[Rfam]
RNA sequence: AAUAUGACCGUUCUCCGAGCCCGAUUACCUGUGGCCAGGGCUAUGGUUUUCGGGCCGACAGGGUAUGCCGGGAAACCGGCGUGCCUCCCAGUGCGGAAAGGAGAACACAGCUAUACUUU
Numbered sequence: 001a002a003u004a005u006g007a008c009c010g011u012u013c014u015c016c017g018a019g020c021c022c023g024a025u026u027a028c029c030u031g032u033g034g035c036c037a038g039g040g041c042u043a044u045g046g047u048u049u050u051c052g053g054g055c056c057g058a059c060a061g062g063g064u065a066u067g068c069c070g071g072g073a074a075a076c077c078g079g080c081g082u083g084c085c086u087c088c089c090a091g092u093g094c095g096g097a098a099a100g101g102a103g104a105a106c107a108c109a110g111c112u113a114u115a116c117u118u119u
Stems, first nucleotide, its partner, number of pairs: 003113002011105006019055006027047003033042003061086011087096002
Annotation
Rfam assigns this 119-nucleotide RNA from Desulfofundulus salinus to the family "Molybdenum/Tungsten riboswitch aptamer (Moco RNA motif)". Lineage of the source: Bacteria > Bacillati > Bacillota > Eubacteriales > Desulfofundulus. Pairs were carried over by alignment from the consensus structure, which is taken from published work.